A member of the RNA family "Small nucleolar RNA SNORD25" from Durio zibethinus, 86 nucleotides long. The organism belongs to Durio, within Eukaryota. A search with the family's covariance model found it, with a score of 53 bits. The family's consensus secondary structure was predicted with PFOLD. The family is grouped with related families in Rfam's "SNORD25 clan".

[Rfam]
RNA sequence: CAGAACAGUGAUGAGUUAUAACAAAUCUGUAAUGAAGUGCGAAUAUGAUCGCAAAUAUUUAUAAAUGUCUAAGGGACUGAGUUCUA
Numbered sequence: 001c002a003g004a005a006c007a008g009u010g011a012u013g014a015g016u017u018a019u020a021a022c023a024a025a026u027c028u029g030u031a032a033u034g035a036a037g038u039g040c041g042a043a044u045a046u047g048a049u050c051g052c053a054a055a056u057a058u059u060u061a062u063a064a065a066u067g068u069c070u071a072a073g074g075g076a077c078u079g080a081g082u083u084c085u086a
Base pairs, nucleotide, nucleotide: 002085003084004083005082006081